[Rfam]
RNA sequence: GAUUGCUGUGAUGACUGUGAAAAUUCAAGCUCAACAGACUGGAUUGUAGGUCUCUUUCUCUAUAUAGAGAGAGGGAUUUGCAUGUCGACUACACCACUGACCUGAGCAAUC
Numbered sequence: 001g002a003u004u005g006c007u008g009u010g011a012u013g014a015c016u017g018u019g020a021a022a023a024u025u026c027a028a029g030c031u032c033a034a035c036a037g038a039c040u041g042g043a044u045u046g047u048a049g050g051u052c053u054c055u056u057u058c059u060c061u062a063u064a065u066a067g068a069g070a071g072a073g074g075g076a077u078u079u080g081c082a083u084g085u086c087g088a089c090u091a092c093a094c095c096a097c098u099g100a101c102c103u104g105a106g107c108a109a110u111c
Stems, first nucleotide, its partner, number of pairs: 001111006
The record is a 111-nucleotide RNA from Camphora micrantha, which matches "Small nucleolar RNA Z107/R87" in Rfam.
It is annotated as a C/D-box small nucleolar RNA.
On this family, see Barneche et al., J Mol Biol 2001: "Identification of 66 box C/D snoRNAs in Arabidopsis thaliana: extensive gene duplications generated multiple isoforms predicting new ribosomal RNA 2'-O-methylation sites".
Rfam 15.1 lists 783 matches to the family in 221 species.
The match comes from Rfam's covariance-model search (87 bits).
Pairs were carried over by alignment from the consensus structure, which was predicted with RNAfold.